[Rfam]
RNA sequence: UUCAUAGAUACAACUUUAGAAGACUUAUUCUAAAAAGUGUAUCUAUGCUGGUUAUAUUCAAGAAGAAAAAACGACCACAUAGAGGACCCAUCUAUGUGGUUUUUGUUUUGC
Numbered sequence: 001u002u003c004a005u006a007g008a009u010a011c012a013a014c015u016u017u018a019g020a021a022g023a024c025u026u027a028u029u030c031u032a033a034a035a036a037g038u039g040u041a042u043c044u045a046u047g048c049u050g051g052u053u054a055u056a057u058u059c060a061a062g063a064a065g066a067a068a069a070a071a072c073g074a075c076c077a078c079a080u081a082g083a084g085g086a087c088c089c090a091u092c093u094a095u096g097u098g099g100u101u102u103u104u105g106u107u108u109u110g111c
Stems, first nucleotide, its partner, number of pairs: 003047009015034007074100010
Rfam assigns this 111-nucleotide RNA from Enterococcus faecalis to the family "trpB ncRNA motif". It scores 70 bits against the family's covariance model. Rfam classes the family as a cis-regulatory element. From the family's description: trpB ncRNA motif was reported as a strong cis regulatory motif candidate, with potential to be a cis regulatory riboswitch type, it have been identified in Firmicutes and Fusobacteria. For this family Rfam cites "The discovery of novel noncoding RNAs in 50 bacterial genomes" (Narunsky et al., Nucleic Acids Res, 2024).